[Rfam]
RNA sequence: UUAACUCAUAAUUGUAUGGAAUGGGAUCGUUUGCCUACGUUUGCGGCUAGGGGCGCUGUUCCAACUCCAUACAAAUUUGAGUUA
Numbered sequence: 001u002u003a004a005c006u007c008a009u010a011a012u013u014g015u016a017u018g019g020a021a022u023g024g025g026a027u028c029g030u031u032u033g034c035c036u037a038c039g040u041u042u043g044c045g046g047c048u049a050g051g052g053g054c055g056c057u058g059u060u061c062c063a064a065c066u067c068c069a070u071a072c073a074a075a076u077u078u079g080a081g082u083u084a
Stems, first nucleotide, its partner, number of pairs: 008078001010076001012074005018068001020066001022064001024062003028058002034052003039047002
RNA: mir-2807 microRNA precursor family